[Rfam]
RNA sequence: GAGCACGGCCCGUCGGACAGACGUUCUGCUUCUCUUUAAAGAGCACGGAUGUAUCCACACCGUGUGACAUGAAUGAAAUGAGAAGUUUUCAGGGCUGCCAACCUCUCCGUUAAGGUUCUGCAGUGGUAUAUUUCUAAUACAAUA
Numbered sequence: 001g002a003g004c005a006c007g008g009c010c011c012g013u014c015g016g017a018c019a020g021a022c023g024u025u026c027u028g029c030u031u032c033u034c035u036u037u038a039a040a041g042a043g044c045a046c047g048g049a050u051g052u053a054u055c056c057a058c059a060c061c062g063u064g065u066g067a068c069a070u071g072a073a074u075g076a077a078a079u080g081a082g083a084a085g086u087u088u089u090c091a092g093g094g095c096u097g098c099c100a101a102c103c104u105c106u107c108c109g110u111u112a113a114g115g116u117u118c119u120g121c122a123g124u125g126g127u128a129u130a131u132u133u134c135u136a137a138u139a140c141a142a143u144a
Stems, first nucleotide, its partner, number of pairs: 003065006022047003026043002084135002094124002098120001100117005
RNA: Small nucleolar RNA U109